[Rfam]
RNA sequence: GAAAAAUGAAGAUACUCUAACUGCUUCCUAUGACAGUGAAGACUUCAGAUCCAACUCUGAUUUCACUCAAGUU
Number, nucleotide and partner (000 for none) at each position: 001g064002a063003a062004a061005a000006a000007u000008g000009a000010a000011g000012a000013u000014a000015c000016u000017c000018u000019a000020a000021c000022u000023g000024c000025u000026u000027c000028c000029u000030a000031u000032g000033a000034c000035a000036g000037u000038g000039a000040a000041g000042a000043c000044u000045u000046c000047a000048g000049a000050u000051c000052c000053a000054a000055c000056u000057c000058u000059g000060a000061u004062u003063u002064c001065a000066c000067u000068c000069a000070a000071g000072u000073u000
Overview
Shown here is a 73-nucleotide RNA from Turnix velox, a member of the family "Small nucleolar RNA SNORD19". A search with the family's covariance model found it, with a score of 41 bits. The organism belongs to Turnix, within Eukaryota. For this family Rfam cites "RNomics: an experimental approach that identifies 201 candidates for novel, small, non-messenger RNAs in mouse" (Huttenhofer et al., EMBO J, 2001). The family is grouped with related families in Rfam's "SNORD19 clan".